[Rfam]
RNA sequence: CAGGGCUGGGGGAGGGCUGCUGGGCAGUGGGGCUAGCGGGUCCCUCCUCAUACCAGCCAGCCUGGCCCUGUGCCCGAGAUCAGCUCCCAGGGGGGCUCCCUGCCGGGUCCCUUCUGUGCAGUAACAGGUGUGAGCAUUCAUGCAGCGUUUUGAUGGUCAUGUAUGAUACUGCAAACAACA
Numbered sequence: 001c002a003g004g005g006c007u008g009g010g011g012g013a014g015g016g017c018u019g020c021u022g023g024g025c026a027g028u029g030g031g032g033c034u035a036g037c038g039g040g041u042c043c044c045u046c047c048u049c050a051u052a053c054c055a056g057c058c059a060g061c062c063u064g065g066c067c068c069u070g071u072g073c074c075c076g077a078g079a080u081c082a083g084c085u086c087c088c089a090g091g092g093g094g095g096c097u098c099c100c101u102g103c104c105g106g107g108u109c110c111c112u113u114c115u116g117u118g119c120a121g122u123a124a125c126a127g128g129u130g131u132g133a134g135c136a137u138u139c140a141u142g143c144a145g146c147g148u149u150u151u152g153a154u155g156g157u158c159a160u161g162u163a164u165g166a167u168a169c170u171g172c173a174a175a176c177a178a179c180a
Base pairs, nucleotide, nucleotide: 003075004074005073006072008068009067010066015062016061017060018059019057020056021055022054024053027046029044030043032041033040034039086107087106088105091101092100093099115175117173118172119171120170121169122168123167125165126164131159132158133157135155136154137153138152142149